[Rfam]
RNA sequence: GCCUGGAUAGCUCAAUUGGUAGAGCAUCAGACUUUUAAUCUGAGGGUUCAGGGUUCAAGUCCCUGUUCAGGCG
Numbered sequence: 001g002c003c004u005g006g007a008u009a010g011c012u013c014a015a016u017u018g019g020u021a022g023a024g025c026a027u028c029a030g031a032c033u034u035u036u037a038a039u040c041u042g043a044g045g046g047u048u049c050a051g052g053g054u055u056c057a058a059g060u061c062c063c064u065g066u067u068c069a070g071g072c073g
Base pairs, nucleotide, nucleotide: 001072002071003070004069005068006067007066010025011024012023013022027043028042029041030040031039049065050064051063052062053061
The family of this 73-nucleotide sequence is "tRNA". It is one of the family's seed sequences.